Rfam assigns this 77-nucleotide RNA from Mesorhizobium denitrificans to the family "Makes More Granules Regulator RNA (mmgR)". The pairing is the family consensus, mapped onto this sequence. By type it is a small RNA. For this family Rfam cites "Evidence for a second class of S-adenosylmethionine riboswitches and other regulatory RNA motifs in alpha-proteobacteria" (Corbino et al., Genome Biol, 2005). Taxonomically the source falls in Mesorhizobium (Bacteria, Pseudomonadati, Pseudomonadota, Phyllobacteriaceae).
RNA sequence: UGUCCGCGCCCAGCUUGGGCGUUUCCUCCCUAGACUUGACCGCAUCGCGCAAACGGUGCGGUUCUUUUUUGCCCCAU
Number, nucleotide and partner (000 for none) at each position: 001u000002g000003u000004c000005c000006g000007c000008g020009c019010c018011c017012a000013g000014c000015u000016u000017g011018g010019g009020c008021g000022u000023u000024u000025c000026c000027u000028c000029c000030c000031u000032a000033g000034a000035c000036u000037u000038g000039a062040c061041c060042g059043c058044a057045u056046c055047g054048c000049g000050c000051a000052a000053a000054c047055g046056g045057u044058g043059c042060g041061g040062u039063u000064c000065u000066u000067u000068u000069u000070u000071g000072c000073c000074c000075c000076a000077u000
About the family: SuhB later renamed mmgR (makes more granules regulator) was a putative non-coding RNA found multiple times in the Agrobacterium tumefaciens genome and related alpha-proteobacteria. Other non-coding RNAs uncovered in the same analysis include: speF, ybhL, metA, and serC.Several studies inSinorhizobium meliloti showed that suhB element is indeed a non-coding RNA:firstly it was detected on Northern blot and called Sm8RNA, secondly in an RNAseq study referred to as SmelC689.The mutant phenotype's (strain lacking the small RNA) cytoplasm contains higher content of polyhydroxybutyrate (PBH)storage granules than wild type strain. The sRNA is required to limit the PBH intracellular accumulation when the nitrogen-fixing Sinorhizobium meliloti is under condition of surplus carbon in relation to nitrogen. It has been renamed to mmgR. Further study confirmed that mmgR fine-tunes the regulation of PBH storage.Northern blot confirmed the expression of the sRNA in other rhizobia species. MmgR homologues were found in most alpha-proteobacteria.